[Rfam]
RNA sequence: AUAUAAGCAAAAGUUACUUUUUUAGAUUCAUUGAAAAAGUGAUGUAUCUAGUCCAAAUCAUAGACAAGAUACAUCACUUUUUCAAUGAAUCUAAAAAAGUAGUUUUUGCUUAUAU
Numbered sequence: 001a002u003a004u005a006a007g008c009a010a011a012a013g014u015u016a017c018u019u020u021u022u023u024a025g026a027u028u029c030a031u032u033g034a035a036a037a038a039g040u041g042a043u044g045u046a047u048c049u050a051g052u053c054c055a056a057a058u059c060a061u062a063g064a065c066a067a068g069a070u071a072c073a074u075c076a077c078u079u080u081u082u083c084a085a086u087g088a089a090u091c092u093a094a095a096a097a098a099g100u101a102g103u104u105u106u107u108g109c110u111u112a113u114a115u
Base pairs, nucleotide, nucleotide: 002114003113004112005111006110007109009107010106011105012104013103015101016100017099018098019097020096021095022094023093024092025091027089028088029087030086031085032084033083034082035081036080037079038078039077040076041075042074043073044072049067051065052064
Shown here is a 115-nucleotide RNA sequence from Trifolium subterraneum, a member of the family "MIR2593 microRNA precursor family". Gene Ontology terms of the family: RISC complex and miRNA-mediated post-transcriptional gene silencing. The source organism's lineage runs through Eukaryota, Pentapetalae, Fabales, Fabaceae and Trifolium. It scores 103 bits against the family's covariance model.